[Rfam]
RNA sequence: GCAUCUCUGGAAAGCAGGCGUGUUCCCGGCCCGGGAACGGCGUCUCACCGACGGUGCAAGUCCGUCCCGCGGGCCGGACGAAGCUCUCAGGUGCAGAUGACAGAGGGGGAGAC
Numbered sequence: 001g002c003a004u005c006u007c008u009g010g011a012a013a014g015c016a017g018g019c020g021u022g023u024u025c026c027c028g029g030c031c032c033g034g035g036a037a038c039g040g041c042g043u044c045u046c047a048c049c050g051a052c053g054g055u056g057c058a059a060g061u062c063c064g065u066c067c068c069g070c071g072g073g074c075c076g077g078a079c080g081a082a083g084c085u086c087u088c089a090g091g092u093g094c095a096g097a098u099g100a101c102a103g104a105g106g107g108g109g110a111g112a113c
Stems, first nucleotide, its partner, number of pairs: 002108001004106006016045006047092003050088002054086001056084001060079005
Rfam assigns this 113-nucleotide sequence from Thermomonospora echinospora to the family "Glycine riboswitch aptamer". A search with the family's covariance model found it, with a score of 42 bits.